[Rfam]
RNA sequence: UCAACGAAAAUUAAGAACUAUAAAGUCAUAGAUUAAGACUAGGAACCACCUCCUUGGCUAGCCCAAUCUCCCUUGGGCUGGCCAUUUC
Numbered sequence: 001u002c003a004a005c006g007a008a009a010a011u012u013a014a015g016a017a018c019u020a021u022a023a024a025g026u027c028a029u030a031g032a033u034u035a036a037g038a039c040u041a042g043g044a045a046c047c048a049c050c051u052c053c054u055u056g057g058c059u060a061g062c063c064c065a066a067u068c069u070c071c072c073u074u075g076g077g078c079u080g081g082c083c084a085u086u087u088c
Base pairs, nucleotide, nucleotide: 041054042053043052044051056083057082058081059080060079061078062077063076064075065074066073
The family of this 88-nucleotide RNA sequence from Moellerella wisconsensis is "CyaR/Rye RNA". The family's consensus secondary structure was predicted with PFOLD. This sRNA was originally identified in a large scale screen of E. coli. It was shown to bind Hfq and called RyeE. This sRNA has since been characterised as a post-transcriptional regulator of the 18 kDa OmpX porin in Salmonella. Phylogenetic and mutational analyses suggest that a conserved RNA hairpin of this sRNA which features a C-rich apical loop, acts to sequester the Shine-Dalgarno sequence of ompX mRNA and inhibits translational initiation. The expression of this sRNA has been shown to be tightly controlled by the cyclic AMP receptor protein, CRP and has been renamed CyaR (cyclic AMP-activated RNA). Lineage of the source: Bacteria > Pseudomonadati > Pseudomonadota > Enterobacterales > Moellerella wisconsensis.